[Rfam]
Guanidine-II riboswitch aptamer (mini-ykkC): a 48-nucleotide sequence from Rhizobium sp. LC145.
Lineage of the source: Bacteria > Pseudomonadati > Pseudomonadota > Hyphomicrobiales > Rhizobium.

RNA sequence: AAGCGAGGACGACCUCCCCCAUCCGGGAAAUCAUUCGGGACGGCCCGG
Number, nucleotide and partner (000 for none) at each position: 001a000002a000003g018004c000005g016006a015007g014008g013009a000010c000011g000012a000013c008014c007015u006016c005017c000018c003019c000020c000021a000022u000023c000024c000025g000026g000027g000028a000029a000030a000031u000032c000033a000034u000035u048036c047037g046038g045039g044040a000041c000042g000043g000044c039045c038046c037047g036048g035

Gene Ontology term of the family: regulation of gene expression.